RNA sequence: CCUGCCUCUAGAGGCCUUGCAGGUGUGGCUGCUGUGUCACAUGUGCAUCAGUAGGUGGCAGAGGAGAGAGAGGCUAUGUCCAUGCUCGCUGUUCUGACCUGUGAACUUCUCAAUGAUUAGUAGACUAACAUU
Numbered sequence: 001c002c003u004g005c006c007u008c009u010a011g012a013g014g015c016c017u018u019g020c021a022g023g024u025g026u027g028g029c030u031g032c033u034g035u036g037u038c039a040c041a042u043g044u045g046c047a048u049c050a051g052u053a054g055g056u057g058g059c060a061g062a063g064g065a066g067a068g069a070g071a072g073g074c075u076a077u078g079u080c081c082a083u084g085c086u087c088g089c090u091g092u093u094c095u096g097a098c099c100u101g102u103g104a105a106c107u108u109c110u111c112a113a114u115g116a117u118u119a120g121u122a123g124a125c126u127a128a129c130a131u132u
Stems, first nucleotide, its partner, number of pairs: 002061005007055004013049002019046003024041006068129001071126002074123004083115002086112001088110001091106004
RNA: Small nucleolar RNA SNORA17